[Rfam]
RNA sequence: UUCGUUCAUCUUACCCUGUAAGACGGAAGUAGACAUUCUUGUCGAAGGAACGCAUA
Numbered sequence: 001u002u003c004g005u006u007c008a009u010c011u012u013a014c015c016c017u018g019u020a021a022g023a024c025g026g027a028a029g030u031a032g033a034c035a036u037u038c039u040u041g042u043c044g045a046a047g048g049a050a051c052g053c054a055u056a
Stems, first nucleotide, its partner, number of pairs: 003052005009023005026053001032043003
This 56-nucleotide RNA belongs to the Rfam family "Glutamine riboswitch aptamer (glnA leader)".
A reference for the family is Ames and Breaker (2011), "Bacterial aptamers that selectively bind glutamine", RNA Biol.
Gene Ontology term of the family: glutamine binding.
Pairs were carried over by alignment from the consensus structure, which is taken from published work.